[Rfam]
RNA sequence: AACAACCACAAGGGGAGCUAUUAAAAUAGCUGAGAGUGAAGUGCGACUUCUAACCCUUAGAACCUGUAAGUUAAUGCUUGCGAAGGAAUGUGGAUAGACAGCUGA
Numbered sequence: 001a002a003c004a005a006c007c008a009c010a011a012g013g014g015g016a017g018c019u020a021u022u023a024a025a026a027u028a029g030c031u032g033a034g035a036g037u038g039a040a041g042u043g044c045g046a047c048u049u050c051u052a053a054c055c056c057u058u059a060g061a062a063c064c065u066g067u068a069a070g071u072u073a074a075u076g077c078u079u080g081c082g083a084a085g086g087a088a089u090g091u092g093g094a095u096a097g098a099c100a101g102c103u104g105a
Base pairs, nucleotide, nucleotide: 006093007092008091009090010089011057012056013055014054016051017030018029019028020027021026038050039049040048041047063086064085065084067080068079069078070077

The record is a 105-nucleotide sequence from Candidatus Kurthia intestinigallinarum, which matches "TPP riboswitch aptamer (THI element)" in Rfam. Taxonomically the source falls in Kurthia (Bacteria, Bacilli, Caryophanales, Caryophanaceae). Its family is annotated with thiamine pyrophosphate binding in the Gene Ontology. On this family, see Rodionov et al., J Biol Chem 2002: "Comparative genomics of thiamin biosynthesis in procaryotes. New genes and regulatory mechanisms". The match comes from Rfam's covariance-model search (72 bits). Pairs were carried over by alignment from the consensus structure, which is taken from published work.